[Rfam]
RNA sequence: AGCUUUGCGCAGUGGCAGUAUCGUAGCCAAUGAGGUUUAUCCGAGGCGCGAUUAUUGCUAAUUCAAAAUAAAAUUCAGAGAAAAGGGAGUAUGUUUAAUACACUAAGAAGAGAUUUAUGUAACUCUCAUUACUAGGAGA
Numbered sequence: 001a002g003c004u005u006u007g008c009g010c011a012g013u014g015g016c017a018g019u020a021u022c023g024u025a026g027c028c029a030a031u032g033a034g035g036u037u038u039a040u041c042c043g044a045g046g047c048g049c050g051a052u053u054a055u056u057g058c059u060a061a062u063u064c065a066a067a068a069u070a071a072a073a074u075u076c077a078g079a080g081a082a083a084a085g086g087g088a089g090u091a092u093g094u095u096u097a098a099u100a101c102a103c104u105a106a107g108a109a110g111a112g113a114u115u116u117a118u119g120u121a122a123c124u125c126u127c128a129u130u131a132c133u134a135g136g137a138g139a
Base pairs, nucleotide, nucleotide: 020052021051022050023049024048026047027046028045034042035041088104089103090102092100093099094098124139125138126137127136

The family of this 139-nucleotide RNA from Canis lupus is "U4 spliceosomal RNA". Lineage of the source: Eukaryota > Vertebrata > Sarcopterygii > Boreoeutheria > Canis lupus. U4 small nuclear RNA (U4 snRNA) is a component of the major U2-dependent spliceosome. Its family is annotated with spliceosomal tri-snRNP complex assembly and U4 snRNP in the Gene Ontology. Pairs were carried over by alignment from the consensus structure, which is taken from published work.